Annotation
The family of this 132-nucleotide sequence from Sapajus apella is "U11 spliceosomal RNA". The family's consensus secondary structure is taken from published work. Clan: U1 clan. Rfam classes the family as a spliceosomal small nuclear RNA. The match comes from Rfam's covariance-model search (57 bits).
[Rfam]
RNA sequence: AGGGGGGGCUUCUAUUGUGAGGGGCACACAUACGGCAUCGUUUACUCUUUGUGGAGAAUCAACAUCAAGAGAUUUCAGCAGCAUGAUUUUUUGGUAUUUGGGUAGCUGGUGAUCAUUGGUCCUAGAGCCCUU
Numbered sequence: 001a002g003g004g005g006g007g008g009c010u011u012c013u014a015u016u017g018u019g020a021g022g023g024g025c026a027c028a029c030a031u032a033c034g035g036c037a038u039c040g041u042u043u044a045c046u047c048u049u050u051g052u053g054g055a056g057a058a059u060c061a062a063c064a065u066c067a068a069g070a071g072a073u074u075u076c077a078g079c080a081g082c083a084u085g086a087u088u089u090u091u092u093g094g095u096a097u098u099u100g101g102g103u104a105g106c107u108g109g110u111g112a113u114c115a116u117u118g119g120u121c122c123u124a125g126a127g128c129c130c131u132u
Base pairs, nucleotide, nucleotide: 008082009081010080012078013026015024016023027053028052029051030050032048034046035045037043056075057074058073059072060071100130101129102128103127106125107124108123109122111121112120113119114118